This 53-nucleotide RNA from Phtheirospermum japonicum belongs to the Rfam family "Plastid-atpF group II-D1 intron". The family's consensus secondary structure was predicted with LocARNA. Rfam's curators write: Plastid atpF is a non-coding RNA (ncRNA) recognised in plastids. It has been reported in the intron group II-D1 region of ATP synthase (atpF) genes.
[Rfam]
RNA sequence: AUCUGCUUUAUCGAUAUAGAACACUCAUAUCGAUAAAAUGUUUUGAACCAUUU
Numbered sequence: 001a002u003c004u005g006c007u008u009u010a011u012c013g014a015u016a017u018a019g020a021a022c023a024c025u026c027a028u029a030u031c032g033a034u035a036a037a038a039u040g041u042u043u044u045g046a047a048c049c050a051u052u053u
Base pairs, nucleotide, nucleotide: 011033012032013031014030015029016028017027

Gene Ontology term of the family: Group II intron splicing. Taxonomically the source falls in Phtheirospermum (Eukaryota, Streptophyta, Mesangiospermae, Pentapetalae).